[Rfam]
RNA: Ascomycota telomerase RNA, nucleotides 1409 to 1931
RNA sequence: AUUCAAACAGAGGGAAACCUUGCGUGUCUGUGCUGAAGUAUAUGCUCAUUGUUAGCUUGGCUCGUUACGCGUCCGGCUCACUGUUCCGACCUCCAAUAGGUACUUCUGCUGGCAUCGAUCUCUUUUGGUAUGAUACGGUGGCGAAUAUGGCUAAUGCGGGUUGCUGGGUGCAAAAGAUGGAAAGUACUGGUGAUAGAUCCCCGCUGCCCCGGCUGCUAACAUGGAGUAGAGCCCCAACAGCCAAAGGUGGAUGGGAACUGCAAAGCGUCCAAAGCGGGACCCAUCUCGAGUUGGUGUCAUUGAGUCUAGCGCUCGUCUGCUUUGGGUAGCGUUGGGUAGUUUGCUGUGAUCCCUUGGCUUUUGGUGGCAAUAUCCUCUGCUGGCUGUUGUUAGGUAAGGGGUAUGUCAGGGAUGGAGUGGCUCUUGUGGGUUGUUGGACAGGGACCGGCCUGAUGGGUGGGUAGUCCCGGGUUGCCUCGUCGUCUGUAAUGGACCAGAGGCAACCCCUCCGAAUUUUUGGAGA
Numbered sequence: 001a002u003u004c005a006a007a008c009a010g011a012g013g014g015a016a017a018c019c020u021u022g023c024g025u026g027u028c029u030g031u032g033c034u035g036a037a038g039u040a041u042a043u044g045c046u047c048a049u050u051g052u053u054a055g056c057u058u059g060g061c062u063c064g065u066u067a068c069g070c071g072u073c074c075g076g077c078u079c080a081c082u083g084u085u086c087c088g089a090c091c092u093c094c095a096a097u098a099g100g101u102a103c104u105u106c107u108g109c110u111g112g113c114a115u116c117g118a119u120c121u122c123u124u125u126u127g128g129u130a131u132g133a134u135a136c137g138g139u140g141g142c143g144a145a146u147a148u149g150g151c152u153a154a155u156g157c158g159g160g161u162u163g164c165u166g167g168g169u170g171c172a173a174a175a176g177a178u179g180g181a182a183a184g185u186a187c188u189g190g191u192g193a194u195a196g197a198u199c200c201c202c203g204c205u206g207c208c209c210c211g212g213c214u215g216c217u218a219a220c221a222u223g224g225a226g227u228a229g230a231g232c233c234c235c236a237a238c239a240g241c242c243a244a245a246g247g248u249g250g251a252u253g254g255g256a257a258c259u260g261c262a263a264a265g266c267g268u269c270c271a272a273a274g275c276g277g278g279a280c281c282c283a284u285c286u287c288g289a290g291u292u293g294g295u296g297u298c299a300u301u302g303a304g305u306c307u308a309g310c311g312c313u314c315g316u317c318u319g320c321u322u323u324g325g326g327u328a329g330c331g332u333u334g335g336g337u338a339g340u341u342u343g344c345u346g347u348g349a350u351c352c353c354u355u356g357g358c359u360u361u362u363g364g365u366g367g368c369a370a371u372a373u374c375c376u377c378u379g380c381u382g383g384c385u386g387u388u389g390u391u392a393g394g395u396a397a398g399g400g401g402u403a404u405g406u407c408a409g410g411g412a413u414g415g416a417g418u419g420g421c422u423c424u425u426g427u428g429g430g431u432u433g434u435u436g437g438a439c440a441g442g443g444a445c446c447g448g449c450c451u452g453a454u455g456g457g458u459g460g461g462u463a464g465u466c467c468c469g470g471g472u473u474g475c476c477u478c479g480u481c482g483u484c485u486g487u488a489a490u491g492g493a494c495c496a497g498a499g500g501c502a503a504c505c506c507c508u509c510c511g512a513a514u515u516u517u518u519g520g521a522g523a
Base pairs, nucleotide, nucleotide: 278298279297280296281294282293283292302314303313304312305311